Bacterial large subunit ribosomal RNA: a 383-nucleotide part of an RNA from Spirochaeta africana.
[Rfam]
RNA sequence: GAAAAGAGGGGUGAGAUCCCCCUCCGCCGAAAGCCUAAGGUUUCCUGGGUAAAGGUCAUCUUCCCAGGGUUAGUCGGCCCCUAAGGAGAGGCAGAAAUGCGUAUCCGAUGGGAAACGGGUUCAUAUUCCCGUACCUUUGUAUGUUUCGAAGGGAAGACGCAUGAGGUAAAGCCCGGCCGGGCGACGGUUGUCCCGGUCGAAGCAGUAAGCCGUUGACGAUGGUAGGCAAAUCCGCCAUUGGAGGUAAGCUGUGAACGCGAGCGGAGCUACGGCAAAGCGAAGCGGGUGGAGUCAAGGUGCCAAGAAACACUCUCUAAGGUUAGGCAUACAAAGACCGUACCGCAAACCGACACAGGUAGGCGAGAUGAGUAUUCUCAGGCGCU
Numbered sequence: 001g002a003a004a005a006g007a008g009g010g011g012u013g014a015g016a017u018c019c020c021c022c023u024c025c026g027c028c029g030a031a032a033g034c035c036u037a038a039g040g041u042u043u044c045c046u047g048g049g050u051a052a053a054g055g056u057c058a059u060c061u062u063c064c065c066a067g068g069g070u071u072a073g074u075c076g077g078c079c080c081c082u083a084a085g086g087a088g089a090g091g092c093a094g095a096a097a098u099g100c101g102u103a104u105c106c107g108a109u110g111g112g113a114a115a116c117g118g119g120u121u122c123a124u125a126u127u128c129c130c131g132u133a134c135c136u137u138u139g140u141a142u143g144u145u146u147c148g149a150a151g152g153g154a155a156g157a158c159g160c161a162u163g164a165g166g167u168a169a170a171g172c173c174c175g176g177c178c179g180g181g182c183g184a185c186g187g188u189u190g191u192c193c194c195g196g197u198c199g200a201a202g203c204a205g206u207a208a209g210c211c212g213u214u215g216a217c218g219a220u221g222g223u224a225g226g227c228a229a230a231u232c233c234g235c236c237a238u239u240g241g242a243g244g245u246a247a248g249c250u251g252u253g254a255a256c257g258c259g260a261g262c263g264g265a266g267c268u269a270c271g272g273c274a275a276a277g278c279g280a281a282g283c284g285g286g287u288g289g290a291g292u293c294a295a296g297g298u299g300c301c302a303a304g305a306a307a308c309a310c311u312c313u314c315u316a317a318g319g320u321u322a323g324g325c326a327u328a329c330a331a332a333g334a335c336c337g338u339a340c341c342g343c344a345a346a347c348c349g350a351c352a353c354a355g356g357u358a359g360g361c362g363a364g365a366u367g368a369g370u371a372u373u374c375u376c377a378g379g380c381g382c383u
Base pairs, nucleotide, nucleotide: 006024007023008022009021010020011019025381026380027379028378033361034360035359036358039341040340044068045067046066047065048064049063053061054060075337076336077335080111081110085106086105087104089102091100092099093098115132116131117130118129119128135333136332137331138330139329140328141327142326143325144324145323146319147318150315151314152313153312154311159300160299161298162297165293166292167291171287172286173285174284175283176197177196178195179194180193181192198257199256202252203251204250205249209245210244211243217240218239219238220237221236222235223234225233226232261278262277347356348355363375364374365373
The base pairs follow the family's consensus structure, which is taken from published work.